Nitrogen stress-induced RNA 1: a 62-nucleotide RNA from Nostocales cyanobacterium HT-58-2. The family has 17 seed sequences and 962 matches in Rfam 15.1. Lineage of the source: Bacteria > Bacillati > Cyanobacteriota > Cyanophyceae > Nostocales. The family's RNA type in Rfam is small RNA.
[Rfam]
RNA sequence: UGGUAGAUGCACCCUGAUAACUGACUCCCCUGAGUAGCAACUCGCUGCUAGGGGGUUUUUAU
Number, nucleotide and partner (000 for none) at each position: 001u000002g013003g012004u011005a000006g000007a000008u000009g000010c000011a004012c003013c002014c000015u000016g000017a000018u000019a000020a000021c000022u000023g000024a000025c000026u000027c054028c053029c052030c051031u050032g000033a049034g048035u047036a046037g045038c044039a000040a000041c000042u000043c000044g038045c037046u036047g035048c034049u033050a031051g030052g029053g028054g027055g000056u000057u000058u000059u000060u000061a000062u000